[Rfam]
RNA: Guanidine-I riboswitch aptamer
RNA sequence: AAGAAUGUUUUCUAGGGUUCCGUGGUGAAAUUCCAGACUGGUCCGAGAGAAAACACACAGUUUUUCUGUGACACGGAGGGACAAAAGCCCGGGAGAU
Numbered sequence: 001a002a003g004a005a006u007g008u009u010u011u012c013u014a015g016g017g018u019u020c021c022g023u024g025g026u027g028a029a030a031u032u033c034c035a036g037a038c039u040g041g042u043c044c045g046a047g048a049g050a051a052a053a054c055a056c057a058c059a060g061u062u063u064u065u066c067u068g069u070g071a072c073a074c075g076g077a078g079g080g081a082c083a084a085a086a087g088c089c090c091g092g093g094a095g096a097u
Stems, first nucleotide, its partner, number of pairs: 007054006015044002020041002022038001023035003027031001056070005072092001074095001078090003